[Rfam]
radC RNA: a 158-nucleotide sequence from Aromatoleum tolulyticum. It scores 99 bits against the family's covariance model. Pairs were carried over by alignment from the consensus structure, which is taken from published work.

RNA sequence: ACGCUUCCCGCAUGUUCGCUGGCGUUGCCGGCAGCAUGCCCAGGCAGUCGAGACCUUCGAGACUGCGGUGCGGUUCGCCGCGCUGGUCGCUUCUUUCGCCGGACGCAUGCCGCGUCCAUCCACCUCACCCUCAAGGGACAUACCUCCCUUGCGGGCGG
Number, nucleotide and partner (000 for none) at each position: 001a000002c000003g000004c000005u000006u000007c000008c000009c000010g000011c038012a037013u036014g035015u033016u000017c000018g032019c031020u030021g029022g028023c027024g000025u000026u000027g023028c022029c021030g020031g019032c018033a015034g000035c014036a013037u012038g011039c000040c000041c000042a000043g000044g066045c065046a064047g063048u062049c061050g000051a000052g088053a087054c086055c085056u000057u000058c000059g000060a000061g049062a048063c047064u046065g045066c044067g084068g083069u082070g081071c080072g079073g078074u000075u000076c000077g000078c073079c072080g071081c070082g069083c068084u067085g055086g054087u053088c052089g000090c000091u000092u000093c000094u000095u000096u000097c000098g000099c000100c000101g000102g000103a000104c000105g000106c000107a000108u000109g000110c000111c000112g000113c000114g000115u000116c000117c000118a000119u000120c000121c000122a000123c000124c158125u157126c000127a000128c000129c000130c000131u000132c151133a150134a149135g148136g147137g146138a145139c000140a000141u000142a000143c000144c000145u138146c137147c136148c135149u134150u133151g132152c000153g000154g000155g000156c000157g125158g124